[Rfam]
RNA sequence: CCACAAGUUCAAGGCCAUAGCAGAAGUGCUCAUGGUGUGACUUGUCAGAUUCUAACAAAUCUGCAAAUUCUGUU
Numbered sequence: 001c002c003a004c005a006a007g008u009u010c011a012a013g014g015c016c017a018u019a020g021c022a023g024a025a026g027u028g029c030u031c032a033u034g035g036u037g038u039g040a041c042u043u044g045u046c047a048g049a050u051u052c053u054a055a056c057a058a059a060u061c062u063g064c065a066a067a068u069u070c071u072g073u074u
Stems, first nucleotide, its partner, number of pairs: 014041001016039001019074007026038003046063006